Small nucleolar RNA SNORA40: a 130-nucleotide RNA from Oryctolagus cuniculus. The family's consensus secondary structure was predicted with RNAalifold.
RNA sequence: UGCCCUUGUUUAUGUUUUUUGUUCAACUUGCAGACAAAGAAUGACAUACAGGUGCACAAAAUAUAUUCUUGUUUGCAACCCAGAACUCUUUGAUCACCAUGAAUUUUGAUACAUUACAAGCAGGAAUAGG
Numbered sequence: 001u002g003c004c005c006u007u008g009u010u011u012a013u014g015u016u017u018u019u020u021g022u023u024c025a026a027c028u029u030g031c032a033g034a035c036a037a038a039g040a041a042u043g044a045c046a047u048a049c050a051g052g053u054g055c056a057c058a059a060a061a062u063a064u065a066u067u068c069u070u071g072u073u074u075g076c077a078a079c080c081c082a083g084a085a086c087u088c089u090u091u092g093a094u095c096a097c098c099a100u101g102a103a104u105u106u107u108g109a110u111a112c113a114u115u116a117c118a119a120g121c122a123g124g125a126a127u128a129g130g
Base pairs, nucleotide, nucleotide: 001056002055003054005052006051007050008049009048011046015041016040017039018038019037020036021035022034065127066126067125068124069123071121072120073119074118075117081108082107083106084105085104087102088101090099
It is annotated as an H/ACA-box small nucleolar RNA. The family has 28 seed sequences and 2,550 matches in Rfam 15.1. The source organism's lineage runs through Eukaryota, Metazoa, Chordata, Theria and Oryctolagus. The snoRNA ACA 40 belongs to the H/ACA family of snoRNAs and guides the pseudouridylation of 28S rRNA subunit at position U4565. NB This family has a high threshold value to exclude a large number of closely related sequences that do not appear to have conserved H and ACA boxes, and may be pseudogenes. Rfam links the family to the GO terms nucleolus and RNA processing.